[Rfam]
RNA sequence: AGUUCCGGGGGUCAACGUCCGCCAGCGCGAUGCGCCCGCGGGCGCGAUUUGC
Numbered sequence: 001a002g003u004u005c006c007g008g009g010g011g012u013c014a015a016c017g018u019c020c021g022c023c024a025g026c027g028c029g030a031u032g033c034g035c036c037c038g039c040g041g042g043c044g045c046g047a048u049u050u051g052c
Base pairs, nucleotide, nucleotide: 016044017043018042019041020040021039022038025035026034027033028032
The record is a 52-nucleotide sequence from Methylopila sp. Yamaguchi, which matches "ffh sRNA" in Rfam. For this family Rfam cites "Identification of candidate structured RNAs in the marine organism 'Candidatus Pelagibacter ubique'" (Meyer et al., BMC Genomics, 2009). The organism belongs to Methylopila, within Bacteria.